ZMP/ZTP riboswitch aptamer (pfl RNA motif): a 141-nucleotide sequence from Pigmentiphaga humi. The family's consensus secondary structure is taken from published work.

RNA sequence: UUCACCCUGCGUAACUGGCGAUACUGGCGGCGGCUUGCGGUCGUUGCCGGGUGGGUCAACCACGAGGAAGCGCAGGGUUCUGGCGGCAACCGGCGCGCGUGCGUGGCCGGGGCCGUCCCGCCGUUCGCCUGGGCAGCCGUU
Number, nucleotide and partner (000 for none) at each position: 001u000002u000003c000004a078005c077006c076007c075008u074009g073010c072011g071012u070013a000014a000015c067016u066017g129018g128019c127020g126021a125022u000023a000024c000025u000026g000027g000028c000029g000030g000031c000032g000033g000034c000035u000036u000037g000038c000039g000040g000041u000042c000043g000044u000045u000046g000047c000048c000049g000050g000051g063052u062053g061054g060055g000056u000057c000058a000059a000060c054061c053062a052063c051064g000065a000066g016067g015068a000069a000070g012071c011072g010073c009074a008075g007076g006077g005078u004079u000080c000081u000082g000083g000084c000085g000086g000087c000088a000089a000090c000091c000092g000093g000094c000095g000096c000097g000098c000099g000100u000101g000102c000103g000104u000105g000106g000107c000108c000109g000110g000111g000112g000113c000114c000115g000116u000117c000118c136119c000120g134121c133122c132123g000124u000125u021126c020127g019128c018129c017130u000131g000132g122133g121134c120135a000136g118137c000138c000139g000140u000141u000